[Rfam]
RNA sequence: AUUGUGUGGGGGCGAACUGCUGACCUUGUCGGCACAUGCCAAGUAGCUUGGGAUCUGAAGGGCUACGAUGCGCCAUUGCGUAUGAUCCCCCACAGGUCGCCAAGCUUCCAGUGAUGCGACCAAUCGACUGCCAUUGCGGUAGGUGGAGGG
Dot-bracket structure: ...........(.(....((((((...)))))).).).....((((((...[[[[.....)))))).((((((....))))))]]]].............................(.....(((.(((((....))))).)))....).
A member of the RNA family "radC RNA" from Pseudomonas asplenii, 150 nucleotides long.
By type it is a cis-regulatory element.